[Rfam]
RNA sequence: AUAAUGAUACUUCCGGCGACGGCUGUCCAUAGGAAUGGCAGAGGUGAAAGCCCUAUGC
Numbered sequence: 001a002u003a004a005u006g007a008u009a010c011u012u013c014c015g016g017c018g019a020c021g022g023c024u025g026u027c028c029a030u031a032g033g034a035a036u037g038g039c040a041g042a043g044g045u046g047a048a049a050g051c052c053c054u055a056u057g058c
Stems, first nucleotide, its partner, number of pairs: 012055001013022003023041003027038003042054003
A member of the RNA family "pemK RNA", 58 nucleotides long. It is annotated as a cis-regulatory element. Pairs were carried over by alignment from the consensus structure, which is taken from published work.